[Rfam]
skipping-rope RNA: an 80-nucleotide RNA.
RNA sequence: GUGUUUUGAAGUAGAGAUCGUGCUGCUACACACCCUCGUGGUCAAAAGAAAUGUGGGAAGGGGCACACCCACCAAAAUGC
Number, nucleotide and partner (000 for none) at each position: 001g080002u079003g078004u077005u076006u075007u074008g073009a000010a000011g029012u028013a027014g026015a000016g000017a000018u000019c000020g066021u065022g064023c063024u062025g000026c014027u013028a012029c011030a000031c048032a042033c041034c040035c000036u000037c000038g000039u000040g034041g033042u032043c000044a000045a000046a000047a000048g031049a000050a000051a000052u000053g072054u071055g070056g069057g068058a000059a000060g000061g000062g024063g023064c022065a021066c020067a000068c057069c056070c055071a054072c053073c008074a007075a006076a005077a004078u003079g002080c001
The base pairs follow the family's consensus structure, which is taken from published work.
The sequence is in the family's curated seed alignment.